[Rfam]
RNA sequence: GAUAUGGCUUGAAAGUGAUGACGUAGUCUGAAGGAAAAUCUCGUGAGGGAUGUGUACGAAGAUUGCAGAACAGAGUUGUAUCGUACGUUCUGGAGAACGG
Number, nucleotide and partner (000 for none) at each position: 001g082002a081003u080004a079005u078006g077007g076008c075009u074010u073011g000012a000013a000014a000015g071016u070017g000018a000019u000020g000021a000022c000023g066024u065025a064026g063027u062028c061029u060030g000031a000032a000033g057034g000035a000036a000037a000038a051039u050040c049041u048042c047043g000044u000045g000046a000047g042048g041049g040050a039051u038052g000053u000054g000055u000056a000057c033058g000059a000060a029061g028062a027063u026064u025065g024066c023067a000068g000069a000070a016071c015072a000073g010074a009075g008076u007077u006078g005079u004080a003081u002082c001083g000084u000085a000086c099087g098088u097089u000090c000091u000092g000093g000094a000095g000096a000097a088098c087099g086100g000
The family of this 100-nucleotide part of an RNA from an uncultured archaeon is "Archaeal large subunit ribosomal RNA". The family's consensus secondary structure is taken from published work.